This 304-nucleotide sequence from Pipistrellus kuhlii belongs to the Rfam family "Metazoan signal recognition particle RNA". By type it is a non-coding RNA gene. The literature on the family includes a 2000 paper in Science by Batey et al., "Crystal structure of the ribonucleoprotein core of the signal recognition particle". The family's consensus secondary structure is taken from published work. Rfam links the family to the GO terms SRP-dependent cotranslational protein targeting to membrane, signal sequence recognition and signal recognition particle, endoplasmic reticulum targeting.

Nucleotides: 304
Base pairs, nucleotide, nucleotide: 001046002045004023005022006021007020008019028043029042030040048302049301050300051299054296055295062289063288064287068281069280070279072277073276074275079274080273081272082271083270085268086267088265089264090263091262093261094260095259096258097257104250105249106248107247108246109245110244111240112239114238115237116236117235118234119232120231122229123228124227125226126225127224128223129169130168131167132166134164135163136162137161138160140158141157142156143155147152170176171175178221180219181218182217188213189212190211191210
Number, partner (000 for none) and nucleotide at each position: 001046g002045c003000g004023a005022g006021g007020c008019g009000c010000g011000g012000u013000g014000g015000c016000g017000g018000a019008c020007g021006c022005c023004u024000g025000u026000a027000g028043u029042c030040c031000c032000a033000g034000c035000u036000a037000c038000u039000c040030g041000u042029g043028a044000g045002g046001c047000u048302g049301a050300g051299g052000c053000u054296g055295g056000a057000g058000g059000a060000u061000c062289g063288c064287u065000u066000g067000g068281g069280c070279c071000c072277a073276g074275g075000a076000g077000u078000c079274c080273u081272g082271g083270g084000c085268u086267g087000a088265a089264g090263u091262g092000c093261g094260c095259u096258a097257u098000g099000c100000c101000a102000a103000u104250u105249g106248g107247g108246u109245g110244u111240c112239c113000g114238c115237a116236c117235u118234a119232c120231g121000u122229u123228c124227g125226g126225c127224a128223u129169c130168a131167a132166u133000a134164u135163g136162g137161u138160g139000a140158u141157u142156u143155u144000g145000g146000g147152g148000g149000g150000a151000g152147c153000a154000g155143g156142g157141g158140a159000c160138c161137a162136c163135c164134a165000g166132g167131u168130u169129g170176c171175c172000u173000a174000a175171g176170g177000a178221g179000a180219g181218g182217u183000g184000a185000a186000c187000c188213g189212g190211c191210u192000c193000a194000g195000g196000u197000c198000a199000g200000a201000a202000a203000c204000c205000u206000a207000g208000c209000u210191g211190g212189u213188c214000a215000a216000a217182a218181c219180u220000c221178u222000g223128g224127u225126g226125c227124u228123g229122a230000u231120u232119g233000g234118u235117a236116g237115u238114g239112g240111g241000a242000u243000c244110g245109c246108g247107c248106c249105u250104g251000u252000g253000a254000a255000u256000a257097a258096u259095a260094g261093c262091c263090a264089c265088u266000g267086c268085a269000c270083u271082c272081c273080a274079g275074c276073c277072u278000a279070g280069g281068c282000a283000g284000c285000a286000u287064a288063g289062c290000u291000u292000g293000a294000c295055c296054c297000u298000a299051u300050c301049u302048c303000u304000a